[Rfam]
RNA sequence: AUGUAGUGUGACAUGCCCGUUGGGGUUUUACUCUGAUUGCUGAAAUAUUAUUAUUUAAUUGAUUUUGGGAAACGGGGCGUUACAACA
Numbered sequence: 001a002u003g004u005a006g007u008g009u010g011a012c013a014u015g016c017c018c019g020u021u022g023g024g025g026u027u028u029u030a031c032u033c034u035g036a037u038u039g040c041u042g043a044a045a046u047a048u049u050a051u052u053a054u055u056u057a058a059u060u061g062a063u064u065u066u067g068g069g070a071a072a073c074g075g076g077g078c079g080u081u082a083c084a085a086c087a
Stems, first nucleotide, its partner, number of pairs: 004087001007084006014077001016076006
This 87-nucleotide RNA from Medicago truncatula belongs to the Rfam family "MIR2617 microRNA precursor family".
The organism belongs to Medicago, within Eukaryota.